The record is a 139-nucleotide RNA sequence from Scaptodrosophila lebanonensis, which matches "Small nucleolar RNA snoR639/H1" in Rfam. Rfam links the family to the GO terms RNA processing and nucleolus. By type it is an H/ACA-box small nucleolar RNA. It scores 112 bits against the family's covariance model. Rfam describes the family as follows. snoR639 or snoH1 belongs to the H/ACA class of snoRNAs which are thought to guide the sites of modification of uridines to pseudouridines. snoH1 is found in an intron of the mfl gene in Drosophila. NCBI's taxonomy places the organism under Eukaryota, Mandibulata, Panorpida, Cyclorrhapha, Scaptodrosophila.
Nucleotides: 139
Stems, first nucleotide, its partner, number of pairs: 019049004024044003076133004088119007098110001100108001
Number, partner (000 for none) and nucleotide at each position: 001000a002000c003000c004000c005000c006000a007000u008000g009000a010000u011000a012000u013000a014000a015000g016000c017000c018000g019049g020048c021047a022046g023000u024044u025043g026042c027000a028000u029000g030000u031000a032000u033000a034000u035000c036000c037000c038000a039000a040000c041000a042026g043025c044024a045000u046022c047021u048020g049019u050000g051000a052000c053000u054000a055000u056000g057000a058000u059000u060000g061000g062000g063000a064000a065000c066000a067000g068000u069000a070000a071000a072000g073000c074000u075000a076133c077132u078131g079130a080000a081000c082000u083000g084000u085000g086000u087000g088119u089118g090117u091116u092115g093114g094113g095000c096000u097000u098110c099000a100108c101000g102000a103000a104000u105000u106000c107000a108100g109000c110098g111000u112000g113094c114093c115092u116091g117090a118089c119088a120000a121000a122000g123000g124000a125000a126000u127000u128000u129000a130079u131078c132077a133076g134000a135000c136000c137000a138000c139000a